Rfam assigns this 80-nucleotide sequence from Erysipelotrichaceae bacterium 5_2_54FAA to the family "ZMP/ZTP riboswitch aptamer (pfl RNA motif)".
[Rfam]
RNA sequence: UCAUAGUUAUAUGACUGACGGAAGUGGAAUGGACCACAGGGAGUAUAAUGUUAGAUAAGCCGACCGUCUGGGCGUUUGUU
Numbered sequence: 001u002c003a004u005a006g007u008u009a010u011a012u013g014a015c016u017g018a019c020g021g022a023a024g025u026g027g028a029a030u031g032g033a034c035c036a037c038a039g040g041g042a043g044u045a046u047a048a049u050g051u052u053a054g055a056u057a058a059g060c061c062g063a064c065c066g067u068c069u070g071g072g073c074g075u076u077u078g079u080u
Stems, first nucleotide, its partner, number of pairs: 003052001006049007015040002017068005024037004057075001059073003
The organism belongs to Erysipelotrichaceae, within Bacteria.